[Rfam]
RNA sequence: AUGAAGGCAGUGGGAGAGUUCGAUAUAUUCGAACGCCGAAGGGGCAAGGCUUAGAGCCGAAACUCUCAGGCACAAGGACCUCUGCUGGACG
Numbered sequence: 001a002u003g004a005a006g007g008c009a010g011u012g013g014g015a016g017a018g019u020u021c022g023a024u025a026u027a028u029u030c031g032a033a034c035g036c037c038g039a040a041g042g043g044g045c046a047a048g049g050c051u052u053a054g055a056g057c058c059g060a061a062a063c064u065c066u067c068a069g070g071c072a073c074a075a076g077g078a079c080c081u082c083u084g085c086u087g088g089a090c091g
Stems, first nucleotide, its partner, number of pairs: 006086005012080002019033004035071003038067002042065003048058002
Record summary:
This 91-nucleotide RNA sequence from Dethiosulfovibrio peptidovorans belongs to the Rfam family "Glycine riboswitch aptamer". Lineage of the source: Bacteria > Thermotogati > Synergistota > Synergistales > Dethiosulfovibrio peptidovorans. Its family is annotated with glycine biosynthetic process in the Gene Ontology. The pairing is the family consensus, mapped onto this sequence.